[Rfam]
This 105-nucleotide sequence belongs to the Rfam family "c-di-GMP-II-GAG riboswitch aptamer". The literature on the family includes a 2017 paper in Proc Natl Acad Sci U S A by Weinberg et al., "Bioinformatic analysis of riboswitch structures uncovers variant classes with altered ligand specificity". It is one of the family's seed sequences. Gene Ontology terms of the family: regulation of gene expression and cyclic-di-GMP binding.
RNA sequence: GCACCACCGGGACGCAUCGAUCCUCGGACCACCAACACGGUCGCCAGCGUGGGCCCCGCCCAUCAGGUCCGAGGGGAGCCAAUCGCGAGACCGACCCGGCCGACG
Numbered sequence: 001g002c003a004c005c006a007c008c009g010g011g012a013c014g015c016a017u018c019g020a021u022c023c024u025c026g027g028a029c030c031a032c033c034a035a036c037a038c039g040g041u042c043g044c045c046a047g048c049g050u051g052g053g054c055c056c057c058g059c060c061c062a063u064c065a066g067g068u069c070c071g072a073g074g075g076g077a078g079c080c081a082a083u084c085g086c087g088a089g090a091c092c093g094a095c096c097c098g099g100c101c102g103a104c105g
Base pairs, nucleotide, nucleotide: 004102007099008098009097010096011095014079015078022074023073024072025071026070027069028068029067039092040091041088042087043086044085